[Rfam]
RNA sequence: AAUUAUGUUUUCUAGGGUUCCGUAACAUUCGUUAGUCUGGACCGAGAGAAAACUCAUGGAAUGCAUUACGCAAAUGCGUAAUUGCUAACCGUGCCACGGAAGGAUAAAAGCCUGGGAGAU
Numbered sequence: 001a002a003u004u005a006u007g008u009u010u011u012c013u014a015g016g017g018u019u020c021c022g023u024a025a026c027a028u029u030c031g032u033u034a035g036u037c038u039g040g041a042c043c044g045a046g047a048g049a050a051a052a053c054u055c056a057u058g059g060a061a062u063g064c065a066u067u068a069c070g071c072a073a074a075u076g077c078g079u080a081a082u083u084g085c086u087a088a089c090c091g092u093g094c095c096a097c098g099g100a101a102g103g104a105u106a107a108a109a110g111c112c113u114g115g116g117a118g119a120u
Stems, first nucleotide, its partner, number of pairs: 007053006015043002020040002022037001023034004054093001056092004095115001097118001101113003

Shown here is a 120-nucleotide sequence from Lysinibacillus composti, a member of the family "Guanidine-I riboswitch aptamer". Rfam describes the family as follows. This family represents a conserved RNA structure found upstream of the ykkC and yxkD genes in Bacillus subtilis and related genes in other bacteria. The function of this family is unclear although it has been suggested that it may function to switch on efflux pumps and detoxification systems in response to harmful environmental molecules. The match comes from Rfam's covariance-model search (73 bits).